[Rfam]
RNA sequence: AUAAUAGAUUUCAGAAUCAGGCCGGGGCGUUUACUCGCCCCGUGUACUCGGUCGUACAUCCAGCCGGUUGCCUGAUUCCUUGCAUUGAAGCGAUGUACGGAGUUUAUAGAGC
Dot-bracket structure: .......(.(((.(((((((((((((((........))))))...((.(((............))))).)))))))))..(.(((.......))).)..))).)........
RNA: iscR stability element
Organism: Citrobacter koseri